[Rfam]
RNA sequence: UAAAUAAGGGCGUAUGGCGGAUGCCUAGGCUUUCAGAGGCGAUGAAGGACGUGAUAAGCUGCGAUAAGUUACGGGGAGUGGCACAUACAUUUUGAUCCGUAAAUUUCCGAAUGGGGCAACCCACUAUACUGAAGGUAUAGUACCGAAAGGAGCAAACCCGGUGAACUGAAACAUCUAAGUAACCGGAGGAAGAGAAAACAAUAGUGAUUCCGUUAGUAGUGGCGAGCGAACGCGGAUUAGCCCAAACCAAUAUUGUUACGGCAAUAUUGGGGUUGUAGGGCUGCGACAUUAGAAUCUUAGUGAACUAGAAUCGUUUGGAAAGACGAACCAAAGAGAGUGAUAGUCUCGUAUAGGUAAGCGAAGAAGAUAUAGCAGUACCCUGAGUAGUGCGGGACACGUGUAAUCCUGUAUGAAUCUGCCGGGACCAUCCGGUAAGGCUAAAUACUCCUGAAAGACCGAUAGUGAACUAGUACCGUGAGGGAAAGGUGAAAAGAACCCUAAGUAAGGGAGUGAAAUAGAACCUGAAACCGUACGCCUACAAG
Numbered sequence: 001u002a003a004a005u006a007a008g009g010g011c012g013u014a015u016g017g018c019g020g021a022u023g024c025c026u027a028g029g030c031u032u033u034c035a036g037a038g039g040c041g042a043u044g045a046a047g048g049a050c051g052u053g054a055u056a057a058g059c060u061g062c063g064a065u066a067a068g069u070u071a072c073g074g075g076g077a078g079u080g081g082c083a084c085a086u087a088c089a090u091u092u093u094g095a096u097c098c099g100u101a102a103a104u105u106u107c108c109g110a111a112u113g114g115g116g117c118a119a120c121c122c123a124c125u126a127u128a129c130u131g132a133a134g135g136u137a138u139a140g141u142a143c144c145g146a147a148a149g150g151a152g153c154a155a156a157c158c159c160g161g162u163g164a165a166c167u168g169a170a171a172c173a174u175c176u177a178a179g180u181a182a183c184c185g186g187a188g189g190a191a192g193a194g195a196a197a198a199c200a201a202u203a204g205u206g207a208u209u210c211c212g213u214u215a216g217u218a219g220u221g222g223c224g225a226g227c228g229a230a231c232g233c234g235g236a237u238u239a240g241c242c243c244a245a246a247c248c249a250a251u252a253u254u255g256u257u258a259c260g261g262c263a264a265u266a267u268u269g270g271g272g273u274u275g276u277a278g279g280g281c282u283g284c285g286a287c288a289u290u291a292g293a294a295u296c297u298u299a300g301u302g303a304a305c306u307a308g309a310a311u312c313g314u315u316u317g318g319a320a321a322g323a324c325g326a327a328c329c330a331a332a333g334a335g336a337g338u339g340a341u342a343g344u345c346u347c348g349u350a351u352a353g354g355u356a357a358g359c360g361a362a363g364a365a366g367a368u369a370u371a372g373c374a375g376u377a378c379c380c381u382g383a384g385u386a387g388u389g390c391g392g393g394a395c396a397c398g399u400g401u402a403a404u405c406c407u408g409u410a411u412g413a414a415u416c417u418g419c420c421g422g423g424a425c426c427a428u429c430c431g432g433u434a435a436g437g438c439u440a441a442a443u444a445c446u447c448c449u450g451a452a453a454g455a456c457c458g459a460u461a462g463u464g465a466a467c468u469a470g471u472a473c474c475g476u477g478a479g480g481g482a483a484a485g486g487u488g489a490a491a492a493g494a495a496c497c498c499u500a501a502g503u504a505a506g507g508g509a510g511u512g513a514a515a516u517a518g519a520a521c522c523u524g525a526a527a528c529c530g531u532a533c534g535c536c537u538a539c540a541a542g
Stems, first nucleotide, its partner, number of pairs: 008537010023522001024486002028457002030454007037446002039153002047108003050063003069102007078090003113122003123141007143150002157188001158186005168175002198205002208442001209236005219227002239439004247270007277381003281375004293368001295364004300359002305353003311326005329333001335347003387411008418433005473480002496508004
RNA: Bacterial large subunit ribosomal RNA, nucleotides 9 to 550